[Rfam]
RNA: MIR2617 microRNA precursor family
RNA sequence: UUGCAAUGUAGCAUACCCGUUUGGUGAAAUACUCUGAUAUAUAUUUGUUAUUUAAUUACUUUUGGGUAACGGGGUGUUACAGAGUU
Numbered sequence: 001u002u003g004c005a006a007u008g009u010a011g012c013a014u015a016c017c018c019g020u021u022u023g024g025u026g027a028a029a030u031a032c033u034c035u036g037a038u039a040u041a042u043a044u045u046u047g048u049u050a051u052u053u054a055a056u057u058a059c060u061u062u063u064g065g066g067u068a069a070c071g072g073g074g075u076g077u078u079a080c081a082g083a084g085u086u
Stems, first nucleotide, its partner, number of pairs: 003085002007081008016073006